FMN riboswitch aptamer (RFN element): a 118-nucleotide RNA sequence from Mahella australiensis. The base pairs follow the family's consensus structure, which is taken from published work. A search with the family's covariance model found it, with a score of 113 bits. NCBI's taxonomy places the organism under Bacteria, Clostridia, Mahellales, Mahellaceae, Mahella australiensis.
RNA sequence: AAAGAUCUUCAGGGAUAGGUGUGAUUCCUUACCGGCGGUAAAGCCCGCGAGCUGCACAGCAGCAGAUCCGGUGUAAUUCCGGGGCCGACGGUCAUAGUCCGGAUGAAAGAAGGUAUAU
Number, nucleotide and partner (000 for none) at each position: 001a000002a000003a116004g000005a114006u113007c112008u111009u110010c109011a000012g000013g000014g000015a000016u000017a029018g028019g027020u000021g000022u000023g000024a000025u000026u000027c019028c018029u017030u000031a098032c097033c087034g086035g048036c047037g046038g045039u000040a000041a000042a000043g085044c084045c038046c037047g036048c035049g000050a000051g063052c062053u061054g000055c000056a000057c000058a000059g000060c000061a053062g052063c051064a000065g000066a000067u083068c082069c081070g080071g079072u000073g000074u000075a000076a000077u000078u000079c071080c070081g069082g068083g067084g044085c043086c034087g033088a000089c101090g100091g099092u000093c000094a000095u000096a000097g032098u031099c091100c090101g089102g000103a000104u000105g000106a000107a000108a000109g010110a009111a008112g007113g006114u005115a000116u003117a000118u000